The record is a 90-nucleotide RNA from Enterococcus pallens, which matches "TPP riboswitch aptamer (THI element)" in Rfam.
The match comes from Rfam's covariance-model search (70 bits).
The family's consensus secondary structure is taken from published work.

RNA sequence: UAGAAACAUUUGGGGUGCUUUAGAGCUGAGAUUAUACCCAUGGAACCUGAAACAGUUAGAACUGGCGCAGGGAAAUGUCGUAAAACCAUC
Numbered sequence: 001u002a003g004a005a006a007c008a009u010u011u012g013g014g015g016u017g018c019u020u021u022a023g024a025g026c027u028g029a030g031a032u033u034a035u036a037c038c039c040a041u042g043g044a045a046c047c048u049g050a051a052a053c054a055g056u057u058a059g060a061a062c063u064g065g066c067g068c069a070g071g072g073a074a075a076u077g078u079c080g081u082a083a084a085a086c087c088a089u090c
Stems, first nucleotide, its partner, number of pairs: 006078005011040004016034001017026003046071004053064003